Small Cajal body specific RNA 4: a 131-nucleotide RNA from Castor canadensis.
On this family, see Darzacq et al., EMBO J 2002: "Cajal body-specific small nuclear RNAs: a novel class of 2'-O-methylation and pseudouridylation guide RNAs".
Its Rfam clan is "SCARNA4 clan".
The family has 24 seed sequences and 634 matches in Rfam 15.1.
The family's RNA type in Rfam is small Cajal body RNA.
About the family: scaRNAs are a specific class of small nuclear RNAs which localise to the Cajal bodies and guide the modification of RNA polymerase II transcribed spliceosomal RNAs U1, U2, U4, U5 and U12. ACA26 belongs to the H/ACA box class of guide RNAs as it has the predicted hairpin-hinge-hairpin-tail structure, conserved H/ACA-box motifs and is found associated with GAR1.
Lineage of the source: Eukaryota > Craniata > Teleostomi > Euteleostomi > Castor.

RNA sequence: AAUGAAAGUGUCCAAGAAGGCUGAGUCUGAUGAAGCAAGACUUUGCUGAUACACUCCUCCUAGAAAAAAGGGUUGGAGAGAGCAGCCCUUAUUAGAGAAAACUGCAGGGCUGACUGUUCUGCCCAACAUUC
Numbered sequence: 001a002a003u004g005a006a007a008g009u010g011u012c013c014a015a016g017a018a019g020g021c022u023g024a025g026u027c028u029g030a031u032g033a034a035g036c037a038a039g040a041c042u043u044u045g046c047u048g049a050u051a052c053a054c055u056c057c058u059c060c061u062a063g064a065a066a067a068a069a070g071g072g073u074u075g076g077a078g079a080g081a082g083c084a085g086c087c088c089u090u091a092u093u094a095g096a097g098a099a100a101a102c103u104g105c106a107g108g109g110c111u112g113a114c115u116g117u118u119c120u121g122c123c124c125a126a127c128a129u130u131c
Stems, first nucleotide, its partner, number of pairs: 003062001004060001006058001008056001019047003023043006070124004081115002083112007093104003
Rfam links the family to the GO terms RNA processing, Cajal body and nucleolus.